[Rfam]
RNA sequence: CUCUGACUGACACUCUUUCCCUGUUGCACUACUGUGGGGGUGCAGGAGCAGUGCAACCAUGAAAGGGCAUCAGUCAAUGGG
Numbered sequence: 001c002u003c004u005g006a007c008u009g010a011c012a013c014u015c016u017u018u019c020c021c022u023g024u025u026g027c028a029c030u031a032c033u034g035u036g037g038g039g040g041u042g043c044a045g046g047a048g049c050a051g052u053g054c055a056a057c058c059a060u061g062a063a064a065g066g067g068c069a070u071c072a073g074u075c076a077a078u079g080g081g
Base pairs, nucleotide, nucleotide: 001081002080003079005075006074007073008072009071010070013067014066015065016064017063018062019061023057024056025055026054027053028052029051030050

Shown here is an 81-nucleotide RNA sequence from Oryzias melastigma, a member of the family "mir-130 microRNA precursor family". A search with the family's covariance model found it, with a score of 44 bits. Lineage of the source: Eukaryota > Bilateria > Craniata > Adrianichthyoidei > Oryzias. Its family is annotated with miRNA-mediated post-transcriptional gene silencing and RISC complex in the Gene Ontology. The base pairs follow the family's consensus structure, which was predicted with PFOLD. The literature on the family includes a 2002 paper in Curr Biol by Lagos-Quintana et al., "Identification of tissue-specific microRNAs from mouse".